[Rfam]
RNA sequence: GGCAUUUUAUUUCUAUACCACGAUUAGCCCCGGAAACUAAUCGUAUUUGAGAUAAAUAAACGAA
Numbered sequence: 001g002g003c004a005u006u007u008u009a010u011u012u013c014u015a016u017a018c019c020a021c022g023a024u025u026a027g028c029c030c031c032g033g034a035a036a037c038u039a040a041u042c043g044u045a046u047u048u049g050a051g052a053u054a055a056a057u058a059a060a061c062g063a064a
Stems, first nucleotide, its partner, number of pairs: 006060007020044008

The family of this 64-nucleotide RNA sequence from Halobacillus halophilus is "Ribosomal protein L13 leader".
Rfam's curators write: This family is a putative r-protein leader autoregulatory structure found in B. subtilis and other low-GC Gram-positive bacteria. It is located in the 5' untranslated regions of mRNAs encoding the L13-S9 (rplM-rpsI) ribosomal protein operon.
Lineage of the source: Bacteria > Bacillati > Bacillaceae > Halobacillus > Halobacillus halophilus.
For this family Rfam cites "Diverse mechanisms for regulating ribosomal protein synthesis in Escherichia coli" (Zengel and Lindahl, Prog Nucleic Acid Res Mol Biol, 1994).
By type it is a cis-regulatory leader.